[Rfam]
RNA sequence: UGGGCAGUAUCCUUGUGAACUGCACCUUUGCACGGCCUGAAAACUAACAUAUCACACUGCCUUGAUCACAUGAAUCGACAGGGACGGAAGA
Dot-bracket structure: .(((((((.((.....))))))).))..............................((((((((.((.........))))))).)))....

Rfam assigns this 91-nucleotide RNA from Planomicrobium sp. YIM 101495 to the family "pan motif". The family's RNA type in Rfam is cis-regulatory element. A search with the family's covariance model found it, with a score of 56 bits. The organism belongs to Planomicrobium, within Bacteria.